The family of this 92-nucleotide sequence from Piliocolobus tephrosceles is "NoRC associated RNA, pRNA". It is annotated as a non-coding RNA gene. Lineage of the source: Eukaryota > Craniata > Primates > Cercopithecoidea > Piliocolobus. It scores 67 bits against the family's covariance model. The family's consensus secondary structure is taken from published work.
[Rfam]
RNA sequence: CGAUGCUGGCGACCUUGGGGACAGAUGUCCGUGUCGCGAGUUCCCUGGGCCGGCGGUGUGGUCGGUGACUCGACCUCCUGUCUCCUCGGGAG
Numbered sequence: 001c002g003a004u005g006c007u008g009g010c011g012a013c014c015u016u017g018g019g020g021a022c023a024g025a026u027g028u029c030c031g032u033g034u035c036g037c038g039a040g041u042u043c044c045c046u047g048g049g050c051c052g053g054c055g056g057u058g059u060g061g062u063c064g065g066u067g068a069c070u071c072g073a074c075c076u077c078c079u080g081u082c083u084c085c086u087c088g089g090g091a092g
Stems, first nucleotide, its partner, number of pairs: 004089001008084002011082002018079004027069003030065001033062006